[Rfam]
RNA sequence: GCAUUGGAUAGAUGUUGUGCCGCUGUGGUCUAUUGCUACAUCCUGUAGGAGAGCGACGUCAAGGAUGUAGACAAUGC
Dot-bracket structure: ((((((..((((................))))....((((((((.................))))))))..))))))

This 77-nucleotide RNA from Scytonema hofmannii belongs to the Rfam family "CyVA-1 RNA".
Cyanobacteria, Acidobacteria (1 example), Verrucomicrobia (1 example).
The family's RNA type in Rfam is small RNA.
Taxonomically the source falls in Scytonema hofmannii (Bacteria, Cyanobacteriota, Cyanophyceae, Scytonemataceae).